[Rfam]
RNA sequence: AGCCUCUGGAGAGUCUCAUUAUGGGCACCGAAGGAGCAAGCCAGCGUGUAGCUGGUGAACCUCUCAGGUACAAGGGACAGAGUGUAGCAG
Number, nucleotide and partner (000 for none) at each position: 001a085002g000003c000004c082005u081006c080007u079008g078009g000010a000011g000012a000013g000014u000015c025016u024017c023018a000019u000020u000021a000022u000023g017024g016025g015026c000027a069028c068029c067030g065031a064032a000033g000034g063035a062036g061037c000038a000039a000040g056041c055042c054043a053044g052045c000046g000047u000048g000049u000050a000051g000052c044053u043054g042055g041056u040057g000058a000059a000060c000061c036062u035063c034064u031065c030066a000067g029068g028069u027070a000071c000072a000073a000074g000075g000076g000077a000078c008079a007080g006081a005082g004083u000084g000085u001086a000087g000088c000089a000090g000